[Rfam]
RNA sequence: AUGCAGUGGGAUGAAGCAAUCCAUGGGUCUUAGGAAAAGAUAGGCAAUUAGUUGGAGUGAAGGACUUUUAAAUGGCCUUACUCCAAAUACAAUUUGAAGUUUGUUCAUACUUUGCCAAUUUCAAAUGCAGCAAAAAAGGGAAGUGUUUAUGGAUUGACGAUAAUCACACGAAUAGCUAAGGAUGUUGGCAAAAGCAUGGCGAACCGGCAAGUCACAAAACGGCAAUGGACUCCGUUUUGGAGUCUU
Numbered sequence: 001a002u003g004c005a006g007u008g009g010g011a012u013g014a015a016g017c018a019a020u021c022c023a024u025g026g027g028u029c030u031u032a033g034g035a036a037a038a039g040a041u042a043g044g045c046a047a048u049u050a051g052u053u054g055g056a057g058u059g060a061a062g063g064a065c066u067u068u069u070a071a072a073u074g075g076c077c078u079u080a081c082u083c084c085a086a087a088u089a090c091a092a093u094u095u096g097a098a099g100u101u102u103g104u105u106c107a108u109a110c111u112u113u114g115c116c117a118a119u120u121u122c123a124a125a126u127g128c129a130g131c132a133a134a135a136a137a138g139g140g141a142a143g144u145g146u147u148u149a150u151g152g153a154u155u156g157a158c159g160a161u162a163a164u165c166a167c168a169c170g171a172a173u174a175g176c177u178a179a180g181g182a183u184g185u186u187g188g189c190a191a192a193a194g195c196a197u198g199g200c201g202a203a204c205c206g207g208c209a210a211g212u213c214a215c216a217a218a219a220c221g222g223c224a225a226u227g228g229a230c231u232c233c234g235u236u237u238u239g240g241a242g243u244c245u246u
Stems, first nucleotide, its partner, number of pairs: 054084003099204006119192001228244005
RNA: Early nodulin 40